[Rfam]
RNA: Acido-Lenti-1 RNA
RNA sequence: CCCACCGUUGAAACGGUGGGCUAUUUUCAUUUAAUCCCUUCGGGAUU
Numbered sequence: 001c002c003c004a005c006c007g008u009u010g011a012a013a014c015g016g017u018g019g020g021c022u023a024u025u026u027u028c029a030u031u032u033a034a035u036c037c038c039u040u041c042g043g044g045a046u047u
Base pairs, nucleotide, nucleotide: 001020002019003018004017005016006015007014008013034046035045036044037043038042